[Rfam]
RNA sequence: UCGGGGUAACAGCAGCCUCCCGGUCAGGCUUCACGGCCCAAGCGUUGC
Numbered sequence: 001u002c003g004g005g006g007u008a009a010c011a012g013c014a015g016c017c018u019c020c021c022g023g024u025c026a027g028g029c030u031u032c033a034c035g036g037c038c039c040a041a042g043c044g045u046u047g048c
Stems, first nucleotide, its partner, number of pairs: 001023006012048005027038004
Shown here is a 48-nucleotide RNA, a member of the family "chrB-b RNA".
The base pairs follow the family's consensus structure, which is taken from published work.
The family's RNA type in Rfam is cis-regulatory element.
Rfam's curators put it in the seed alignment.